RNA sequence: GUCUUCUUGUCGGAGUGCUAGUACGUUUCACCUAGGUGAUUUGUAUAGCUGAGACCGUUAAUUCGGGAUCCGUUGAACCUGAUCGGGCUAGUACCCGCGAAGGAAACAAGCGUGGCAUUUAA
Numbered sequence: 001g002u003c004u005u006c007u008u009g010u011c012g013g014a015g016u017g018c019u020a021g022u023a024c025g026u027u028u029c030a031c032c033u034a035g036g037u038g039a040u041u042u043g044u045a046u047a048g049c050u051g052a053g054a055c056c057g058u059u060a061a062u063u064c065g066g067g068a069u070c071c072g073u074u075g076a077a078c079c080u081g082a083u084c085g086g087g088c089u090a091g092u093a094c095c096c097g098c099g100a101a102g103g104a105a106a107c108a109a110g111c112g113u114g115g116c117a118u119u120u121a122a
Base pairs, nucleotide, nucleotide: 006110007109008108009107010106011072012071013070014069016066017049018048019047020046056065057064078103079102080101084097085096086095087094
Overview
Shown here is a 122-nucleotide sequence from Glaciecola punicea, a member of the family "TPP riboswitch aptamer (THI element)". Pairs were carried over by alignment from the consensus structure, which is taken from published work. The source organism's lineage runs through Bacteria, Pseudomonadati, Pseudomonadota, Glaciecola and Glaciecola punicea.